[Rfam]
RNA: Bacterial RNase P class A
RNA sequence: AAAGGCAGAUCGUUUGUCGCUGUUCCGCUUGCGGAAGAGAGGAAAGUCUGGGCAGUAUAGAGCACCGUACUUCUUAACUGGAAGGGUUCGUCGGUUGACGAAUACAGAUAGUGCCACAGAAAUAAGUAGCCUAGGAGUUAAAUCCUAGGUCAUAGUGAAAAGGCGAGGUAAGAGCUCACCGCAUCAAUGGUGACAUUGUUGGCUAGGUAAACCUUACGGACUGAAAGACCAUGUAAACCAAGGCUAAAGGGCUGCUCGCUCAACUUGGAGGGUAGGUCGAUGGAUCCCGAGGGUGACUUCGGGGCUAGAUAAAUGACAAACAGCCAUUUUCGGAUGGUGUACAGGACCCGGCUUAUGGUUUGCCUUUUUGU
Numbered sequence: 001a002a003a004g005g006c007a008g009a010u011c012g013u014u015u016g017u018c019g020c021u022g023u024u025c026c027g028c029u030u031g032c033g034g035a036a037g038a039g040a041g042g043a044a045a046g047u048c049u050g051g052g053c054a055g056u057a058u059a060g061a062g063c064a065c066c067g068u069a070c071u072u073c074u075u076a077a078c079u080g081g082a083a084g085g086g087u088u089c090g091u092c093g094g095u096u097g098a099c100g101a102a103u104a105c106a107g108a109u110a111g112u113g114c115c116a117c118a119g120a121a122a123u124a125a126g127u128a129g130c131c132u133a134g135g136a137g138u139u140a141a142a143u144c145c146u147a148g149g150u151c152a153u154a155g156u157g158a159a160a161a162g163g164c165g166a167g168g169u170a171a172g173a174g175c176u177c178a179c180c181g182c183a184u185c186a187a188u189g190g191u192g193a194c195a196u197u198g199u200u201g202g203c204u205a206g207g208u209a210a211a212c213c214u215u216a217c218g219g220a221c222u223g224a225a226a227g228a229c230c231a232u233g234u235a236a237a238c239c240a241a242g243g244c245u246a247a248a249g250g251g252c253u254g255c256u257c258g259c260u261c262a263a264c265u266u267g268g269a270g271g272g273u274a275g276g277u278c279g280a281u282g283g284a285u286c287c288c289g290a291g292g293g294u295g296a297c298u299u300c301g302g303g304g305c306u307a308g309a310u311a312a313a314u315g316a317c318a319a320a321c322a323g324c325c326a327u328u329u330u331c332g333g334a335u336g337g338u339g340u341a342c343a344g345g346a347c348c349c350g351g352c353u354u355a356u357g358g359u360u361u362g363c364c365u366u367u368u369u370g371u
Base pairs, nucleotide, nucleotide: 001367002366003365004364005363006362007361008360009359010358012321013320014319015318016317017316018315020039021038023036024035025034026033027032044354045353046352048351049350050349051348052347053223054222055221056220060257061256062255063254065219066218067217068216069215070084071083072082073081074080085105086103087102088101089100090099091098092097106214107213111212112211113208114207115206127154128153129150130149131148132147133146134145135144136143162180163179165177166176167175181203182201183200185198186197187196188195189194227278228277229276230275238268239267240266241265242264249261250260251259252258285304286303287302288301289300290299291298292297